The record is a 172-nucleotide RNA sequence from Sphenodon punctatus, which matches "Small nucleolar RNA SNORD97" in Rfam. It scores 109 bits against the family's covariance model. Rfam links the family to the GO terms RNA processing and nucleolus.

RNA sequence: UUGCCCAAUGAUUAUAGAAAGACGCGUUAUUACGAGGACCAGUGCUGGAACUCUACUUUUAUCUUCCCUCUGCUCUUGCUUUCUCCUUUCUCUCUUCUUUCUUCUACCUUUAUUCCUCCUUUUUCUGGGGUGUCCAGUGUCCUGUGAGCAAGAUUAUGAGAUAUGAGGGCAA
Numbered sequence: 001u002u003g004c005c006c007a008a009u010g011a012u013u014a015u016a017g018a019a020a021g022a023c024g025c026g027u028u029a030u031u032a033c034g035a036g037g038a039c040c041a042g043u044g045c046u047g048g049a050a051c052u053c054u055a056c057u058u059u060u061a062u063c064u065u066c067c068c069u070c071u072g073c074u075c076u077u078g079c080u081u082u083c084u085c086c087u088u089u090c091u092c093u094c095u096u097c098u099u100u101c102u103u104c105u106a107c108c109u110u111u112a113u114u115c116c117u118c119c120u121u122u123u124u125c126u127g128g129g130g131u132g133u134c135c136a137g138u139g140u141c142c143u144g145u146g147a148g149c150a151a152g153a154u155u156a157u158g159a160g161a162u163a164u165g166a167g168g169g170c171a172a
Base pairs, nucleotide, nucleotide: 001172002171003170004169005168006167035087036086037085038084